[Rfam]
Shown here is a 105-nucleotide sequence from Candidatus Schmidhempelia bombi, a member of the family "t44 RNA". Lineage of the source: Bacteria > Pseudomonadati > Pseudomonadota > Gammaproteobacteria > Candidatus Schmidhempelia bombi. A reference for the family is Tjaden et al. (2002), "Transcriptome analysis of Escherichia coli using high-density oligonucleotide probe arrays", Nucleic Acids Res. This family consists of a number of bacterial RNA genes of between 135 and 170 bases in length. The t44 gene has been identified in several species of enteric bacteria but homologs have also been identified in Pseudomonas and Coxiella species.
RNA sequence: AAUUAAUCAACGUUAUAACACACACAUAUCAUCACUCUUUGCCGGGGUGCCUGUUGUUUUUAUUAGCAAUUAAGGUCGGUUGAAGCGGAUAUGUGGAGGCAUAAC
Numbered sequence: 001a002a003u004u005a006a007u008c009a010a011c012g013u014u015a016u017a018a019c020a021c022a023c024a025c026a027u028a029u030c031a032u033c034a035c036u037c038u039u040u041g042c043c044g045g046g047g048u049g050c051c052u053g054u055u056g057u058u059u060u061u062a063u064u065a066g067c068a069a070u071u072a073a074g075g076u077c078g079g080u081u082g083a084a085g086c087g088g089a090u091a092u093g094u095g096g097a098g099g100c101a102u103a104a105c
Stems, first nucleotide, its partner, number of pairs: 023095008037085004041080004049076004